[Rfam]
RNA sequence: UGGAACUCGACAGGGUAGACAUGAGAACACAUGCGCAAUCAACGGCUGUAAUGAUGCCAUGUCAUGAUUACAAUCUCUCUUUUCAUGUGUUCUCAGGUCACCCCUGCUGAGCUCUU
Numbered sequence: 001u002g003g004a005a006c007u008c009g010a011c012a013g014g015g016u017a018g019a020c021a022u023g024a025g026a027a028c029a030c031a032u033g034c035g036c037a038a039u040c041a042a043c044g045g046c047u048g049u050a051a052u053g054a055u056g057c058c059a060u061g062u063c064a065u066g067a068u069u070a071c072a073a074u075c076u077c078u079c080u081u082u083u084c085a086u087g088u089g090u091u092c093u094c095a096g097g098u099c100a101c102c103c104c105u106g107c108u109g110a111g112c113u114c115u116u
Stems, first nucleotide, its partner, number of pairs: 007110002011106004018099002023094010
RNA: MIR398 microRNA precursor family